Rfam assigns this 173-nucleotide sequence from Burkholderia sp. Leaf177 to the family "Burkholderia RNA 14".
Rfam classes the family as a small RNA.
The family's consensus secondary structure was predicted with RNAfold.
On this family, see Ramos et al., Genomics 2013: "Experimental identification of small non-coding regulatory RNAs in the opportunistic human pathogen Burkholderia cenocepacia J2315".

[Rfam]
RNA sequence: GUCGGCAUCGUCACCAUCCAGCCGACCACCGUUUCUGUCGUCAGCGAAUUGCCGGGCCGCACGAGCGCGUUUCUCGUCGCCCAGGUUCGCGCUCGGGUCGACGGCAUCGUGCAACGCCGCGAAUUCACCGAAGGUGCAGAUGUGAAGGCAGGUCAGCGCCUUUACAAGAUCGA
Numbered sequence: 001g002u003c004g005g006c007a008u009c010g011u012c013a014c015c016a017u018c019c020a021g022c023c024g025a026c027c028a029c030c031g032u033u034u035c036u037g038u039c040g041u042c043a044g045c046g047a048a049u050u051g052c053c054g055g056g057c058c059g060c061a062c063g064a065g066c067g068c069g070u071u072u073c074u075c076g077u078c079g080c081c082c083a084g085g086u087u088c089g090c091g092c093u094c095g096g097g098u099c100g101a102c103g104g105c106a107u108c109g110u111g112c113a114a115c116g117c118c119g120c121g122a123a124u125u126c127a128c129c130g131a132a133g134g135u136g137c138a139g140a141u142g143u144g145a146a147g148g149c150a151g152g153u154c155a156g157c158g159c160c161u162u163u164a165c166a167a168g169a170u171c172g173a
Stems, first nucleotide, its partner, number of pairs: 003054005008047003011043001013041002016038001018037001021034001023031002056149003059143003065137004072133001074131002079092002082089001094121002097118001099116002104112003157172002160168002
Rfam's curators write: Co-purified with Hfq, expression confirmed by Northern blot. NCBI's taxonomy places the organism under Bacteria, Pseudomonadota, Burkholderiales, Burkholderiaceae, Burkholderia. Rfam links the family to the GO term protein binding.